[Rfam]
RNA sequence: UGAGGCCUGUGGAGUUGGCCGGUUCGAGGUCGGCUGUAACCCUGUAUAUACCUCGUAAGGCAGGGGACUCCUUGAUGCUGUGGGAGAACUGGUGCUCACAGGUAAGGGCCUUUGAAUCAUUGUUGAUGGUCCGUCCUCUGGGGCGGUGCUGGAAGUGAACCGGGCCAGGCCUUGAUAGGAGCAGCCCUAAGUUUUCAGUACUGCGUUCAGAGGGUGGCGGGCCUGAGGUGGUUCGAAGGCUACUGCCUGUAGAGGCUGUCAACUUCAGCAGAACCAGGCCUCA
Numbered sequence: 001u002g003a004g005g006c007c008u009g010u011g012g013a014g015u016u017g018g019c020c021g022g023u024u025c026g027a028g029g030u031c032g033g034c035u036g037u038a039a040c041c042c043u044g045u046a047u048a049u050a051c052c053u054c055g056u057a058a059g060g061c062a063g064g065g066g067a068c069u070c071c072u073u074g075a076u077g078c079u080g081u082g083g084g085a086g087a088a089c090u091g092g093u094g095c096u097c098a099c100a101g102g103u104a105a106g107g108g109c110c111u112u113u114g115a116a117u118c119a120u121u122g123u124u125g126a127u128g129g130u131c132c133g134u135c136c137u138c139u140g141g142g143g144c145g146g147u148g149c150u151g152g153a154a155g156u157g158a159a160c161c162g163g164g165c166c167a168g169g170c171c172u173u174g175a176u177a178g179g180a181g182c183a184g185c186c187c188u189a190a191g192u193u194u195u196c197a198g199u200a201c202u203g204c205g206u207u208c209a210g211a212g213g214g215u216g217g218c219g220g221g222c223c224u225g226a227g228g229u230g231g232u233u234c235g236a237a238g239g240c241u242a243c244u245g246c247c248u249g250u251a252g253a254g255g256c257u258g259u260c261a262a263c264u265u266c267a268g269c270a271g272a273a274c275c276a277g278g279c280c281u282c283a
Stems, first nucleotide, its partner, number of pairs: 001283007012070005017035007040065006074275001076273001078271004083266004089258001095254003098250007108240014123225001128223007135213008143204008153195002156190001162187004170179003
Dot-bracket structure: (((((((....((((((((((((.....)))))))....((((((..............)))))))))))...(.(.((((.((((..(.....((((((((((...((((((((((((((.(....(((((((((((((((((((((((..((.(.....((((....(((....)))....))))..)...)).)))))))).))))))))...))))))).).))))))))))))))...))))))).)))...)....)))).)))).).).)))))))
A member of the RNA family "Archaeal signal recognition particle RNA" from Nanohaloarchaea archaeon H01, 283 nucleotides long.
Clan: SRP clan.
By type it is a non-coding RNA gene.
The source organism's lineage runs through Archaea, Methanobacteriati, Methanobacteriota and Candidatus Nanohaloarchaea.